[Rfam]
RNA sequence: UUGAAGCUCCAUCUACAACUGGAUAAGACUUUAGUCCUAGUGUAUACGAGUUUUUGAAAGUAAGGGAGCAAUCACCUCUUGUUCUAUCAAGAGUGCAUUGCUCCUUUA
Numbered sequence: 001u002u003g004a005a006g007c008u009c010c011a012u013c014u015a016c017a018a019c020u021g022g023a024u025a026a027g028a029c030u031u032u033a034g035u036c037c038u039a040g041u042g043u044a045u046a047c048g049a050g051u052u053u054u055u056g057a058a059a060g061u062a063a064g065g066g067a068g069c070a071a072u073c074a075c076c077u078c079u080u081g082u083u084c085u086a087u088c089a090a091g092a093g094u095g096c097a098u099u100g101c102u103c104c105u106u107u108a
Stems, first nucleotide, its partner, number of pairs: 008023004062107011077092004